[Rfam]
RNA: Small nucleolar RNA SNORD35
RNA sequence: UGCAAGUGAUGUUUUUCUCACAAUGGUCUUCCAAGCCGUUGUGGAGUUGACGAAACGUCCCCUCGUCAACUCUGCUGCAGUGUA
Numbered sequence: 001u002g003c004a005a006g007u008g009a010u011g012u013u014u015u016u017c018u019c020a021c022a023a024u025g026g027u028c029u030u031c032c033a034a035g036c037c038g039u040u041g042u043g044g045a046g047u048u049g050a051c052g053a054a055a056c057g058u059c060c061c062c063u064c065g066u067c068a069a070c071u072c073u074g075c076u077g078c079a080g081u082g083u084a
Stems, first nucleotide, its partner, number of pairs: 001079004